[Rfam]
RNA sequence: CAUCGGCGCACUAACAAGCCGUUGUCUGGAUUUUUCGGCUCGUCCCCCGCCGCUUCCAGACGAAGGACAAGGGCCUCCCCGCCCCCUCUUAUGGUCCUUGUCCUGCCAAUAUGCCGCCAUGGCCCUUCCCCUCCGGCCAUGGCGGCUUUUC
Numbered sequence: 001c002a003u004c005g006g007c008g009c010a011c012u013a014a015c016a017a018g019c020c021g022u023u024g025u026c027u028g029g030a031u032u033u034u035u036c037g038g039c040u041c042g043u044c045c046c047c048c049g050c051c052g053c054u055u056c057c058a059g060a061c062g063a064a065g066g067a068c069a070a071g072g073g074c075c076u077c078c079c080c081g082c083c084c085c086c087u088c089u090u091a092u093g094g095u096c097c098u099u100g101u102c103c104u105g106c107c108a109a110u111a112u113g114c115c116g117c118c119a120u121g122g123c124c125c126u127u128c129c130c131c132u133c134c135g136g137c138c139a140u141g142g143c144g145g146c147u148u149u150u151c
Stems, first nucleotide, its partner, number of pairs: 025060006037051003065103011114145010125135001
Dot-bracket structure: ........................((((((......(((.........)))...))))))....(((((((((((.................)))))))))))..........((((((((((.(.........)))))))))))......